[Rfam]
RNA sequence: CCAUUUGAAGUGAGGAUUAUAGGGAACUGAACCAAACCAUCCAUUGAAAGAAAAGGAGCAAGGUUCAGUUUCCUCUAAUAUCUCAUCUCGAAUGG
Numbered sequence: 001c002c003a004u005u006u007g008a009a010g011u012g013a014g015g016a017u018u019a020u021a022g023g024g025a026a027c028u029g030a031a032c033c034a035a036a037c038c039a040u041c042c043a044u045u046g047a048a049a050g051a052a053a054a055g056g057a058g059c060a061a062g063g064u065u066c067a068g069u070u071u072c073c074u075c076u077a078a079u080a081u082c083u084c085a086u087c088u089c090g091a092a093u094g095g
Stems, first nucleotide, its partner, number of pairs: 004092005011085004016079004021074001023072008032063002

A member of the RNA family "MIR2275 microRNA precursor family" from Panicum virgatum, 95 nucleotides long.
Its family is annotated with RISC complex and miRNA-mediated post-transcriptional gene silencing in the Gene Ontology.
Pairs were carried over by alignment from the consensus structure, which was predicted with RNAalifold.
The family has 13 seed sequences and 785 matches in Rfam 15.1.
The match comes from Rfam's covariance-model search (64 bits).